[Rfam]
RNA sequence: GAAGCCCGCCAGACUGCCGCUGGUGCAAUCUUGGAAACAAGGCACUGGAGGAACGUCCGGACUGCAUAGGGCAGCGUAGCAGCUAACGGCUGUCCACUGAAAGGUCGCAAGACUAUAAGGUGAGGAUCAGAGCAACAGAGACGAGUCGCAGCGGGGCAACCUGAUGCGGGUGAAACGGGCAAUCUCUACGCGCAGCAAUACCAAGUAGGCCAGCGUUGAUGGGGCCCCCAGAGCUGGCGGGUAGGUAGCACCGAGCUGUUGGGUGACCAACAGCCCAGAUUAAUGGCAGUCACGUUUGGGGCAACCCAGACGCACAGAAUCCGGCUUAUCGGUGGGCUUCACAC
Numbered sequence: 001g002a003a004g005c006c007c008g009c010c011a012g013a014c015u016g017c018c019g020c021u022g023g024u025g026c027a028a029u030c031u032u033g034g035a036a037a038c039a040a041g042g043c044a045c046u047g048g049a050g051g052a053a054c055g056u057c058c059g060g061a062c063u064g065c066a067u068a069g070g071g072c073a074g075c076g077u078a079g080c081a082g083c084u085a086a087c088g089g090c091u092g093u094c095c096a097c098u099g100a101a102a103g104g105u106c107g108c109a110a111g112a113c114u115a116u117a118a119g120g121u122g123a124g125g126a127u128c129a130g131a132g133c134a135a136c137a138g139a140g141a142c143g144a145g146u147c148g149c150a151g152c153g154g155g156g157c158a159a160c161c162u163g164a165u166g167c168g169g170g171u172g173a174a175a176c177g178g179g180c181a182a183u184c185u186c187u188a189c190g191c192g193c194a195g196c197a198a199u200a201c202c203a204a205g206u207a208g209g210c211c212a213g214c215g216u217u218g219a220u221g222g223g224g225c226c227c228c229c230a231g232a233g234c235u236g237g238c239g240g241g242u243a244g245g246u247a248g249c250a251c252c253g254a255g256c257u258g259u260u261g262g263g264u265g266a267c268c269a270a271c272a273g274c275c276c277a278g279a280u281u282a283a284u285g286g287c288a289g290u291c292a293c294g295u296u297u298g299g300g301g302c303a304a305c306c307c308a309g310a311c312g313c314a315c316a317g318a319a320u321c322c323g324g325c326u327u328a329u330c331g332g333u334g335g336g337c338u339u340c341a342c343a344c
Stems, first nucleotide, its partner, number of pairs: 001340010011329001012291007020048007053327001055325001057324005062195004069227004074191005079093005094124001095122004125186002130184002132180002147168004152163004199247004209238006220230003255274008
A member of the RNA family "Bacterial RNase P class A" from Rhodoferax antarcticus, 344 nucleotides long. Pairs were carried over by alignment from the consensus structure, which is taken from published work. A search with the family's covariance model found it, with a score of 207 bits. Gene Ontology terms of the family: tRNA processing, dimeric ribonuclease P complex and ribonuclease P activity. The family's RNA type in Rfam is ribozyme.